[Rfam]
RNA sequence: GAUUACAGUCAGUUUUGCAGGUUUGCAUCCCAGCGUGCCUCCAGUGCUGUGCAAAUCCAUGCAAAACUGACUGUGGUG
Dot-bracket structure: ..((((((((((((((((((((((((((...(((...........)))))))))).)).)))))))))))))))))..
The record is a 78-nucleotide sequence from Sphenodon punctatus, which matches "mir-19 microRNA precursor family" in Rfam. A search with the family's covariance model found it, with a score of 77 bits. The source organism's lineage runs through Eukaryota, Bilateria, Amniota, Sphenodontidae and Sphenodon. On this family, see Mourelatos et al., Genes Dev 2002: "miRNPs: a novel class of ribonucleoproteins containing numerous microRNAs".